[Rfam]
Shown here is an 85-nucleotide RNA from Brassica carinata, a member of the family "Small nucleolar RNA R32/R81/Z41". It is annotated as a C/D-box small nucleolar RNA. Rfam links the family to the GO terms RNA processing and nucleolus. The organism belongs to Brassica, within Eukaryota. A search with the family's covariance model found it, with a score of 86 bits.
RNA sequence: UGAAGAAAGUGAUGAAAGUUGUAGAUAGGUGACAAUCUUAUGAUCGAUAAAAAUUUCAACUCGCUACGUUCUUUCUGAUUCUUUA
Numbered sequence: 001u002g003a004a005g006a007a008a009g010u011g012a013u014g015a016a017a018g019u020u021g022u023a024g025a026u027a028g029g030u031g032a033c034a035a036u037c038u039u040a041u042g043a044u045c046g047a048u049a050a051a052a053a054u055u056u057c058a059a060c061u062c063g064c065u066a067c068g069u070u071c072u073u074u075c076u077g078a079u080u081c082u083u084u085a
Base pairs, nucleotide, nucleotide: 004082005081006080007079